[Rfam]
Shown here is a 47-nucleotide RNA sequence from Marinobacterium lutimaris, a member of the family "Guanidine-II riboswitch aptamer (mini-ykkC)".
RNA sequence: CCCGGAGGACGACCUCCCCAAACGGUUAAAUGGCCGGGACGACCCGG
Dot-bracket structure: ...(((((....)))))................(((((....)))))
Numbered sequence: 001c002c003c004g005g006a007g008g009a010c011g012a013c014c015u016c017c018c019c020a021a022a023c024g025g026u027u028a029a030a031u032g033g034c035c036g037g038g039a040c041g042a043c044c045c046g047g
Stems, first nucleotide, its partner, number of pairs: 004017005034047005